[Rfam]
Nucleotides: 167
Stems, first nucleotide, its partner, number of pairs: 055147010066136008075127003079124005087117006
Number, partner (000 for none) and nucleotide at each position: 001000a002000u003000a004000g005000u006000a007000u008000a009000g010000a011000a012000a013000u014000c015000a016000a017000u018000g019000c020000u021000g022000u023000u024000a025000u026000u027000u028000u029000u030000a031000c032000a033000c034000u035000u036000c037000a038000u039000u040000u041000u042000c043000u044000a045000u046000a047000u048000u049000u050000u051000u052000a053000a054000u055147u056146u057145c058144c059143u060142c061141u062140a063139c064138a065000c066136c067135u068134c069133u070132c071131u072130u073129u074000u075127a076126u077125u078000g079124g080123a081122g082121a083120a084000a085000a086000a087117a088116g089115a090114g091113a092112a093000u094000a095000g096000a097000a098000a099000a100000a101000a102000a103000a104000a105000a106000g107000u108000g109000g110000a111000u112092u113091u114090c115089u116088c117087u118000a119000c120083u121082u122081u123080u124079c125077a126076a127075u128000c129073a130072a131071a132070g133069g134068g135067a136066g137000u138064u139063g140062u141061a142060g143059g144058g145057g146056a147055a148000a149000a150000g151000u152000u153000u154000a155000g156000a157000a158000a159000a160000u161000g162000g163000c164000g165000u166000g167000u
Notes
A member of the RNA family "MIR2119 microRNA precursor family" from Glycine soja, 167 nucleotides long. Pairs were carried over by alignment from the consensus structure, which was predicted with RNAalifold.